[Rfam]
The record is a 133-nucleotide RNA sequence from Oribacterium sp. oral taxon 078, which matches "Streptococcus sRNA SpR18" in Rfam. Lineage of the source: Bacteria > Bacillota > Lachnospirales > Lachnospiraceae > Oribacterium sp. oral taxon 078.
RNA sequence: AUCAAUGCUUACGAGCAAUGAAAUUGUUCUGCCCGGUACGCAAAUGGUACAAACCAUCAAAAAGAAUAAUUGAAAUGAUAGCCCCCAGUGGCUUGCAUUUGGAUAUAAAAUGAGACCGUAGCGUGAGUGCUGC
Numbered sequence: 001a002u003c004a005a006u007g008c009u010u011a012c013g014a015g016c017a018a019u020g021a022a023a024u025u026g027u028u029c030u031g032c033c034c035g036g037u038a039c040g041c042a043a044a045u046g047g048u049a050c051a052a053a054c055c056a057u058c059a060a061a062a063a064g065a066a067u068a069a070u071u072g073a074a075a076u077g078a079u080a081g082c083c084c085c086c087a088g089u090g091g092c093u094u095g096c097a098u099u100u101g102g103a104u105a106u107a108a109a110a111u112g113a114g115a116c117c118g119u120a121g122c123g124u125g126a127g128u129g130c131u132g133c
Stems, first nucleotide, its partner, number of pairs: 006035002010031002013028002037126001044119004052067001055064001081104001084102002087099004
Rfam classes the family as a small RNA.